LOOT RNA: a 111-nucleotide RNA. The family's RNA type in Rfam is small RNA.
RNA sequence: CGCCUAAACCCGCAAGGGCAUGGCAUCAAAACCUUCGCAGAUAAAAGCUCCUAGUCAGAGCAUCUGCGAAGGUUGUAUCCCGAAAGGGGUAUGGGUAGUCGAAAGGCUAUC
Numbered sequence: 001c002g003c004c005u006a007a008a009c010c011c012g013c014a015a016g017g018g019c020a021u022g023g024c025a026u027c028a029a030a031a032c033c034u035u036c037g038c039a040g041a042u043a044a045a046a047g048c049u050c051c052u053a054g055u056c057a058g059a060g061c062a063u064c065u066g067c068g069a070a071g072g073u074u075g076u077a078u079c080c081c082g083a084a085a086g087g088g089g090u091a092u093g094g095g096u097a098g099u100c101g102a103a104a105g106g107c108u109a110u111c
Stems, first nucleotide, its partner, number of pairs: 002024003009018003032072011047061004074093008094111006